Source information
TPP riboswitch aptamer (THI element): a 97-nucleotide RNA sequence from Parapedobacter luteus. Rfam's curators write: Vitamin B(1) in its active form thiamin pyrophosphate (TPP) is an essential coenzyme that is synthesised by coupling of pyrimidine and thiazole moieties in bacteria. The family's consensus secondary structure is taken from published work.
RNA sequence: AAGAUGUGCAGGGAGUGCUUGAGCCAAUCAGGCUGAGAUGAUAUCCCCGAACCUGAACUGGAUAAUGCCAGCGCAGGGAAAGCGCGUCGGUACGACG
Numbered sequence: 001a002a003g004a005u006g007u008g009c010a011g012g013g014a015g016u017g018c019u020u021g022a023g024c025c026a027a028u029c030a031g032g033c034u035g036a037g038a039u040g041a042u043a044u045c046c047c048c049g050a051a052c053c054u055g056a057a058c059u060g061g062a063u064a065a066u067g068c069c070a071g072c073g074c075a076g077g078g079a080a081a082g083c084g085c086g087u088c089g090g091u092a093c094g095a096c097g
Base pairs, nucleotide, nucleotide: 006085007084008083009082011047012046013045014044016041017033018032019031020030021029052077053076054075055074058071059070060069061068